A member of the RNA family "c-di-AMP riboswitch aptamer (ydaO/yuaA leader)" from Cohnella thailandensis, 142 nucleotides long. The organism belongs to Cohnella, within Bacteria.
RNA sequence: AAUCGCUUAACGCUUAAUUCCCGAUUCGGGAAGCGGGGGAACCAUUCGAGCGCGGCUCGCGCUCCGGGGUGAAUCCAUUAUGGAAGGGCGACUCUCACGUCCUAAUCCGUCAGCUAACCUCGCAAGCGUAACGAGAGGCAAC
Numbered sequence: 001a002a003u004c005g006c007u008u009a010a011c012g013c014u015u016a017a018u019u020c021c022c023g024a025u026u027c028g029g030g031a032a033g034c035g036g037g038g039g040a041a042c043c044a045u046u047c048g049a050g051c052g053c054g055g056c057u058c059g060c061g062c063u064c065c066g067g068g069g070u071g072a073a074u075c076c077a078u079u080a081u082g083g084a085a086g087g088g089c090g091a092c093u094c095u096c097a098c099g100u101c102c103u104a105a106u107c108c109g110u111c112a113g114c115u116a117a118c119c120u121c122g123c124a125a126g127c128g129u130a131a132c133g134a135g136a137g138g139c140a141a142c
Base pairs, nucleotide, nucleotide: 011128012127013126014125018032019031020030033123034122035121036120037119038118043066067108068107069106075083076082077081086102087101088100089099